The family of this 131-nucleotide RNA from Corynebacterium uterequi is "atpB RNA". The source organism's lineage runs through Bacteria, Bacillati, Actinomycetes, Corynebacteriaceae and Corynebacterium. By type it is a cis-regulatory element.
[Rfam]
RNA sequence: CUGCCACCGCGAGCGCAGAUGUGCGACGGAGUCCGCUGCGGUGGUGGUGAGAGUAUUGAGACGUCCAUCGCACCGCGUGCGCAAUCCGUGUUCGCGGCCCGAGAACGGGAGAGAACGCUGAGCGUUACAAC
Numbered sequence: 001c002u003g004c005c006a007c008c009g010c011g012a013g014c015g016c017a018g019a020u021g022u023g024c025g026a027c028g029g030a031g032u033c034c035g036c037u038g039c040g041g042u043g044g045u046g047g048u049g050a051g052a053g054u055a056u057u058g059a060g061a062c063g064u065c066c067a068u069c070g071c072a073c074c075g076c077g078u079g080c081g082c083a084a085u086c087c088g089u090g091u092u093c094g095c096g097g098c099c100c101g102a103g104a105a106c107g108g109g110a111g112a113g114a115a116c117g118c119u120g121a122g123c124g125u126u127a128c129a130a131c
Stems, first nucleotide, its partner, number of pairs: 001047010012037002073097005079091004